[Rfam]
Description: Rfam assigns this 114-nucleotide RNA sequence from Spongiivirga citrea to the family "6S-Flavo RNA". A search with the family's covariance model found it, with a score of 97 bits. The family's consensus secondary structure is taken from published work. Lineage of the source: Bacteria > Pseudomonadati > Flavobacteriia > Flavobacteriales > Spongiivirga.
RNA sequence: ACUCAACGUUAUAACUUUUGAAAAGGGUGAGUUUAAGUUGUAAAAGCGCGCCGUUCCCUAGGGAUUACGGAUUCUUGAGCAACUUGUUAGCCCUAAACUUGUUUUUAGGAGUUU
Numbered sequence: 001a002c003u004c005a006a007c008g009u010u011a012u013a014a015c016u017u018u019u020g021a022a023a024a025g026g027g028u029g030a031g032u033u034u035a036a037g038u039u040g041u042a043a044a045a046g047c048g049c050g051c052c053g054u055u056c057c058c059u060a061g062g063g064a065u066u067a068c069g070g071a072u073u074c075u076u077g078a079g080c081a082a083c084u085u086g087u088u089a090g091c092c093c094u095a096a097a098c099u100u101g102u103u104u105u106u107a108g109g110a111g112u113u114u
Base pairs, nucleotide, nucleotide: 024094025093026092027091028090035085036084037083038082039081044076045075046074051070052069053068054067